RNA sequence: UAUUCCAUAAGAUAUGUUUGAUAUUCUUGGUUGUUUACUAUUUUACCAUUCAACCGAGAAUCAAACAUAUAUCAUGGAGUG
Numbered sequence: 001u002a003u004u005c006c007a008u009a010a011g012a013u014a015u016g017u018u019u020g021a022u023a024u025u026c027u028u029g030g031u032u033g034u035u036u037a038c039u040a041u042u043u044u045a046c047c048a049u050u051c052a053a054c055c056g057a058g059a060a061u062c063a064a065a066c067a068u069a070u071a072u073c074a075u076g077g078a079g080u081g
Base pairs, nucleotide, nucleotide: 005077006076007075008074012070013069014068015067016066017065018064019063020062021061022060024058025057029055030054031053032052033051
RNA: mir-190 microRNA precursor family
Organism: Diaphorina citri